RNA sequence: AGGUUGCCCCUUUGCCGAUUAAAAACCCAGGUGGCAAUGGCGGUGUUGUGCUGCUCGGAAAUUAAAUCCUCUGCUUCUGCUUCUAGAUAAAGCUGUGAGAUUGAUUCUCUAUGAAGCAGGUUUUCUAGGGCUUUAGCACAUG
Numbered sequence: 001a002g003g004u005u006g007c008c009c010c011u012u013u014g015c016c017g018a019u020u021a022a023a024a025a026c027c028c029a030g031g032u033g034g035c036a037a038u039g040g041c042g043g044u045g046u047u048g049u050g051c052u053g054c055u056c057g058g059a060a061a062u063u064a065a066a067u068c069c070u071c072u073g074c075u076u077c078u079g080c081u082u083c084u085a086g087a088u089a090a091a092g093c094u095g096u097g098a099g100a101u102u103g104a105u106u107c108u109c110u111a112u113g114a115a116g117c118a119g120g121u122u123u124u125c126u127a128g129g130g131c132u133u134u135a136g137c138a139c140a141u142g
Stems, first nucleotide, its partner, number of pairs: 002047003007043002009040002012037006074136002079131003085126003089122001092117003097109003
Small nucleolar RNA snoR77: a 142-nucleotide RNA sequence from Ananas comosus. Taxonomically the source falls in Ananas (Eukaryota, Streptophyta, Embryophyta, Magnoliopsida). Gene Ontology terms of the family: nucleolus and RNA processing. Rfam classes the family as an H/ACA-box small nucleolar RNA. Pairs were carried over by alignment from the consensus structure, which was predicted with WAR.